[Rfam]
RNA sequence: UGAGCAAGUGACGAUGAAACAGACAGGGACAUCAGCACUCACCUUGAGAAUGUUGAUCAAUCGUCUUUUGGGAAUCUCUCUGAUGCUCA
Numbered sequence: 001u002g003a004g005c006a007a008g009u010g011a012c013g014a015u016g017a018a019a020c021a022g023a024c025a026g027g028g029a030c031a032u033c034a035g036c037a038c039u040c041a042c043c044u045u046g047a048g049a050a051u052g053u054u055g056a057u058c059a060a061u062c063g064u065c066u067u068u069u070g071g072g073a074a075u076c077u078c079u080c081u082g083a084u085g086c087u088c089a
Stems, first nucleotide, its partner, number of pairs: 002088005
Dot-bracket structure: .(((((.............................................................................))))).
RNA: Small nucleolar RNA R44/J54/Z268 family